[Rfam]
RNA sequence: CGUAAGCAUAAAGAGAAGGUUAAGACCUCGGCAACCUGGAAGACUAUCCAAGGUGCCUAAAGAUGUGGCAAAAUUGCAACUAAGUAGUCAAAA
Numbered sequence: 001c002g003u004a005a006g007c008a009u010a011a012a013g014a015g016a017a018g019g020u021u022a023a024g025a026c027c028u029c030g031g032c033a034a035c036c037u038g039g040a041a042g043a044c045u046a047u048c049c050a051a052g053g054u055g056c057c058u059a060a061a062g063a064u065g066u067g068g069c070a071a072a073a074u075u076g077c078a079a080c081u082a083a084g085u086a087g088u089c090a091a092a093a
Stems, first nucleotide, its partner, number of pairs: 006066004015029001017028004030057003035053003038049003042088001068077003
Rfam assigns this 93-nucleotide RNA sequence to the family "SAM-I/IV (S-adenosyl methionine) riboswitch aptamer". The sequence is in the family's curated seed alignment.